[Rfam]
RNA sequence: CGUUAACGCGAGGAGGCAGACAUGGGUAUCACACGAUCCUUGAAUGUCCUGUUGGUUAGUGCAGCGUUCGCGUUCGUCUUGUCCAUGCUCUUUAUUUGAAACCAAGACGAACCCCAUGACUGAAAUACCAGGCUCCUAAGAAGCUAACAGUUCAACCAAUUGAAAGCGCAUGCCGGCCGCCCGGCAUGCGCUUU
Numbered sequence: 001c002g003u004u005a006a007c008g009c010g011a012g013g014a015g016g017c018a019g020a021c022a023u024g025g026g027u028a029u030c031a032c033a034c035g036a037u038c039c040u041u042g043a044a045u046g047u048c049c050u051g052u053u054g055g056u057u058a059g060u061g062c063a064g065c066g067u068u069c070g071c072g073u074u075c076g077u078c079u080u081g082u083c084c085a086u087g088c089u090c091u092u093u094a095u096u097u098g099a100a101a102c103c104a105a106g107a108c109g110a111a112c113c114c115c116a117u118g119a120c121u122g123a124a125a126u127a128c129c130a131g132g133c134u135c136c137u138a139a140g141a142a143g144c145u146a147a148c149a150g151u152u153c154a155a156c157c158a159a160u161u162g163a164a165a166g167c168g169c170a171u172g173c174c175g176g177c178c179g180c181c182c183g184g185c186a187u188g189c190g191c192u193u194u
Stems, first nucleotide, its partner, number of pairs: 015048004024040003163194013
RNA: Rhizobiales sRNA Atu_C9
Organism: Rhizobium sp. P32RR-XVIII